This 57-nucleotide RNA sequence from Durio zibethinus belongs to the Rfam family "Plastid-rps18 3UTR RNA". Rfam classes the family as a cis-regulatory element. The organism belongs to Durio, within Eukaryota.
RNA sequence: UGCAAGUAUUUUAGGAUUAAGAAGCAACUGUUUUUUGUACCAAUUUGUUAUUAAUCU
Number, nucleotide and partner (000 for none) at each position: 001u000002g000003c000004a000005a000006g000007u000008a000009u000010u000011u000012u000013a000014g000015g000016a000017u000018u037019a036020a035021g034022a033023a032024g031025c030026a000027a000028c000029u000030g025031u024032u023033u022034u021035u020036u019037g018038u000039a000040c000041c000042a000043a000044u000045u000046u000047g000048u000049u000050a000051u000052u000053a000054a000055u000056c000057u000
The family has 238 seed sequences and 1,462 matches in Rfam 15.1.
From the family's description: Plastid rps18 is a non-coding RNA (ncRNA) present in plastids.